[Rfam]
The family of this 53-nucleotide RNA sequence from Streptomyces sp. WMMB 714 is "L17-Actino-Proteobacteria ribosomal protein leader".

RNA sequence: CCGGUACCUGAUACGGCCGGAACUGCCACCGGUACCUGACACGGCCGGUGCAG
Dot-bracket structure: (((((..........)))))..(((.(((((((..........))))))))))
A reference for the family is Eckert and Weinberg (2020), "Discovery of 20 novel ribosomal leader candidates in bacteria and archaea", BMC Microbiol.